[Rfam]
RNA sequence: GAAUUUUUGAUUAACGCUUGUAAAUGAACCGCCUUAAUGUCGUCGUGCAGACAUUAAAUCGGCUUAUGCACAAGUCACUUGGAAG
Numbered sequence: 001g002a003a004u005u006u007u008u009g010a011u012u013a014a015c016g017c018u019u020g021u022a023a024a025u026g027a028a029c030c031g032c033c034u035u036a037a038u039g040u041c042g043u044c045g046u047g048c049a050g051a052c053a054u055u056a057a058a059u060c061g062g063c064u065u066a067u068g069c070a071c072a073a074g075u076c077a078c079u080u081g082g083a084a085g
Stems, first nucleotide, its partner, number of pairs: 016075006